[Rfam]
RNA sequence: CUUCACCGACCCCAACCACAACGGCUCCACCCUGUCCUGUCCGUAGGUGGCAAGCAACGCCUGCGCCUC
Numbered sequence: 001c002u003u004c005a006c007c008g009a010c011c012c013c014a015a016c017c018a019c020a021a022c023g024g025c026u027c028c029a030c031c032c033u034g035u036c037c038u039g040u041c042c043g044u045a046g047g048u049g050g051c052a053a054g055c056a057a058c059g060c061c062u063g064c065g066c067c068u069c
Stems, first nucleotide, its partner, number of pairs: 014026001016024002028065001030063001032059001037054002041050003
ASpks TB sRNA: a 69-nucleotide RNA sequence from Actinophytocola oryzae.
NCBI's taxonomy places the organism under Bacteria, Actinomycetota, Actinomycetes, Pseudonocardiaceae, Actinophytocola.
The family's RNA type in Rfam is antisense RNA.